MIR398 microRNA precursor family: a 97-nucleotide RNA sequence from Cicer arietinum.
It scores 56 bits against the family's covariance model.
The family has 14 seed sequences and 627 matches in Rfam 15.1.
Its family is annotated with RISC complex and miRNA-mediated post-transcriptional gene silencing in the Gene Ontology.
Lineage of the source: Eukaryota > Mesangiospermae > Gunneridae > Cicereae > Cicer.
RNA sequence: AGAUGUUCUACAGGGUCGUCCUAAGACCACAUGAAGCUAUCUUGUGUGCCUAUGCUAUCUAGCUCAUGUGUUCUCAGGUCGCCCCUGCUCAACUUUC
Numbered sequence: 001a002g003a004u005g006u007u008c009u010a011c012a013g014g015g016u017c018g019u020c021c022u023a024a025g026a027c028c029a030c031a032u033g034a035a036g037c038u039a040u041c042u043u044g045u046g047u048g049c050c051u052a053u054g055c056u057a058u059c060u061a062g063c064u065c066a067u068g069u070g071u072u073c074u075c076a077g078g079u080c081g082c083c084c085c086u087g088c089u090c091a092a093c094u095u096u097c
Stems, first nucleotide, its partner, number of pairs: 007091001011087004017081002024074003028070005